[Rfam]
RNA sequence: UGGGAACAAUAUCCUGAUGCUGAAUGAGUGUGUUUUGUAAAACUCCAGCAUCAGUGAUUUUGUUGCCA
Numbered sequence: 001u002g003g004g005a006a007c008a009a010u011a012u013c014c015u016g017a018u019g020c021u022g023a024a025u026g027a028g029u030g031u032g033u034u035u036u037g038u039a040a041a042a043c044u045c046c047a048g049c050a051u052c053a054g055u056g057a058u059u060u061u062g063u064u065g066c067c068a
Stems, first nucleotide, its partner, number of pairs: 005064005011058003014054009
mir-338 microRNA precursor family: a 68-nucleotide RNA sequence from Cyprinus carpio. NCBI's taxonomy places the organism under Eukaryota, Deuterostomia, Craniata, Otomorpha, Cyprinus. Gene Ontology terms of the family: RISC complex and miRNA-mediated post-transcriptional gene silencing. It is one of the family's seed sequences. The base pairs follow the family's consensus structure, which was predicted with RNAalifold.